[Rfam]
RNA sequence: ACUCUCUCAGCUCUGCACAGUCACACUUGGUUUCAUCCAUUUGACUUUCGUAAAGGGGAAAAAGAGCAAAGAUCCCCUUGGAACCCAGGAGUGGCCUCAUAUGGCUUUUCUUCCCUUGAGGGGUGCAAUAGGC
Numbered sequence: 001a002c003u004c005u006c007u008c009a010g011c012u013c014u015g016c017a018c019a020g021u022c023a024c025a026c027u028u029g030g031u032u033u034c035a036u037c038c039a040u041u042u043g044a045c046u047u048u049c050g051u052a053a054a055g056g057g058g059a060a061a062a063a064g065a066g067c068a069a070a071g072a073u074c075c076c077c078u079u080g081g082a083a084c085c086c087a088g089g090a091g092u093g094g095c096c097u098c099a100u101a102u103g104g105c106u107u108u109u110c111u112u113c114c115c116u117u118g119a120g121g122g123g124u125g126c127a128a129u130a131g132g133c
Stems, first nucleotide, its partner, number of pairs: 002066004007061001011058004019046005025040001074123005080117002088111003093106004